[Rfam]
RNA sequence: CUUUCGGCGUUGUUUCUCUUAAGUUAGGGAAAACGCAGGAAUUAUAGAUUUGCCUGAUCGCACAAAAACGCAGCAAUGGCGUAAGACGUAAUGUGAAAUCAAGCAAUUAGCGGGCUGCGGGUUGCAGCUUGACCGGCGACGGAAUGAGAUCUGUUAACGUAAAUUCAGAAGCUAUUCCCCUAAUAAAAGUGCUGCUUUCACAACGCUGGUGUCUUUAAUACAGCAAAAGCAGACUUACCGAAAUAAUGCGCCCCUAUGCAAGCGACAGCCGUGAGGUUGACGAUUUGCGAGAAGACUCGGGGCCAACGGUUUAUCCGGUCAUGAGGUCAUUUUGCCCGCAGCUUUGUCAAUAA
Numbered sequence: 001c002u003u004u005c006g007g008c009g010u011u012g013u014u015u016c017u018c019u020u021a022a023g024u025u026a027g028g029g030a031a032a033a034c035g036c037a038g039g040a041a042u043u044a045u046a047g048a049u050u051u052g053c054c055u056g057a058u059c060g061c062a063c064a065a066a067a068a069c070g071c072a073g074c075a076a077u078g079g080c081g082u083a084a085g086a087c088g089u090a091a092u093g094u095g096a097a098a099u100c101a102a103g104c105a106a107u108u109a110g111c112g113g114g115c116u117g118c119g120g121g122u123u124g125c126a127g128c129u130u131g132a133c134c135g136g137c138g139a140c141g142g143a144a145u146g147a148g149a150u151c152u153g154u155u156a157a158c159g160u161a162a163a164u165u166c167a168g169a170a171g172c173u174a175u176u177c178c179c180c181u182a183a184u185a186a187a188a189g190u191g192c193u194g195c196u197u198u199c200a201c202a203a204c205g206c207u208g209g210u211g212u213c214u215u216u217a218a219u220a221c222a223g224c225a226a227a228a229g230c231a232g233a234c235u236u237a238c239c240g241a242a243a244u245a246a247u248g249c250g251c252c253c254c255u256a257u258g259c260a261a262g263c264g265a266c267a268g269c270c271g272u273g274a275g276g277u278u279g280a281c282g283a284u285u286u287g288c289g290a291g292a293a294g295a296c297u298c299g300g301g302g303c304c305a306a307c308g309g310u311u312u313a314u315c316c317g318g319u320c321a322u323g324a325g326g327u328c329a330u331u332u333u334g335c336c337c338g339c340a341g342c343u344u345u346g347u348c349a350a351u352a353a
Base pairs, nucleotide, nucleotide: 003040004039005038007036008035014030015029016028017027050106051105052104053103055101056100057099061095062094063093064092068089069088070087073080074079112344113343114342115341116340117339118338119337120336121335122334130321131320132319133318134317135316136315141178142177143176144175145174150169151168152167153166188235189234190233192232193231194230195229196227197226198225237310238309239308240307250303251302252301253300254299263282264281266279267278268277269276270275
The record is a 353-nucleotide sequence from Rahnella aquatilis, which matches "RNase E 5' UTR element" in Rfam. Gene Ontology term of the family: regulation of gene expression. A search with the family's covariance model found it, with a score of 284 bits. By type it is a cis-regulatory element. This family represents a conserved element found in the 5' UTR of RNase E mRNA. RNase E is a key regulatory enzyme in the pathway of mRNA degradation in E. coli that is able to auto-regulate the degradation of its own mRNA in response to changes in RNase E activity. This rne 5' UTR element acts as a sensor of cellular RNase E concentration enabling tight regulation of RNase E concentration and synthesis.